[Rfam]
RNA sequence: AACAACCGCUAGGGGUGCCACAUGGCUGAGAUUUCGCAACGGCGAAAGACCCUCUGAACCUGAUCUCGUUAGCACGAGCGAAGGAAAGCGGCGUGGUUUAAUC
Numbered sequence: 001a002a003c004a005a006c007c008g009c010u011a012g013g014g015g016u017g018c019c020a021c022a023u024g025g026c027u028g029a030g031a032u033u034u035c036g037c038a039a040c041g042g043c044g045a046a047a048g049a050c051c052c053u054c055u056g057a058a059c060c061u062g063a064u065c066u067c068g069u070u071a072g073c074a075c076g077a078g079c080g081a082a083g084g085a086a087a088g089c090g091g092c093g094u095g096g097u098u099u100a101a102u103c
Stems, first nucleotide, its partner, number of pairs: 006091005011053004016047001017026003033046005059084003065078004
A member of the RNA family "TPP riboswitch aptamer (THI element)" from Herpetosiphon geysericola, 103 nucleotides long. Pairs were carried over by alignment from the consensus structure, which is taken from published work. NCBI's taxonomy places the organism under Bacteria, Bacillati, Chloroflexia, Herpetosiphonales, Herpetosiphon.